[Rfam]
RNA: mir-12 microRNA precursor family
Organism: Bactrocera dorsalis
RNA sequence: UCCGGUUGAGUAUUACAUCAGGUACUGGUGUGCUAUCGCUUGUUAAAUCUACCAGUACUUAUGUCAUACUGUCCCGGA
Numbered sequence: 001u002c003c004g005g006u007u008g009a010g011u012a013u014u015a016c017a018u019c020a021g022g023u024a025c026u027g028g029u030g031u032g033c034u035a036u037c038g039c040u041u042g043u044u045a046a047a048u049c050u051a052c053c054a055g056u057a058c059u060u061a062u063g064u065c066a067u068a069c070u071g072u073c074c075c076g077g078a
Stems, first nucleotide, its partner, number of pairs: 001078005009070004015064004021059009